Rfam assigns this 53-nucleotide RNA to the family "Streptococcus sRNA SpF59 (ldcC RNA)".
It is annotated as a small RNA.
On this family, see Mann et al., PLoS Pathog 2012: "Control of virulence by small RNAs in Streptococcus pneumoniae".
RNA sequence: CGACCGCCGGCUCUGCCGGCUAAGGCCAUACGGACAGCCGGGUCGAAUGCCGA
Numbered sequence: 001c002g003a004c005c006g007c008c009g010g011c012u013c014u015g016c017c018g019g020c021u022a023a024g025g026c027c028a029u030a031c032g033g034a035c036a037g038c039c040g041g042g043u044c045g046a047a048u049g050c051c052g053a
Stems, first nucleotide, its partner, number of pairs: 001045005006020006